The record is a 78-nucleotide RNA from Granulicatella sp. zg-ZJ, which matches "L17 ribosomal protein downstream element" in Rfam.
RNA sequence: AGAGCGUUAUGAUGUUAGUAUUGCUAUAUAAAUACUUAGUCUAGCUCGCUGUAUUAUCACGGGAGUAUUCCCGUGAUA
Numbered sequence: 001a002g003a004g005c006g007u008u009a010u011g012a013u014g015u016u017a018g019u020a021u022u023g024c025u026a027u028a029u030a031a032a033u034a035c036u037u038a039g040u041c042u043a044g045c046u047c048g049c050u051g052u053a054u055u056a057u058c059a060c061g062g063g064a065g066u067a068u069u070c071c072c073g074u075g076a077u078a
Base pairs, nucleotide, nucleotide: 002047003046004045005044011041012040013039017036018035019034020033021032022031055078056077057076058075059074060073061072062071063070
Taxonomically the source falls in Granulicatella (Bacteria, Bacillati, Bacilli, Lactobacillales). The family's consensus secondary structure is taken from published work.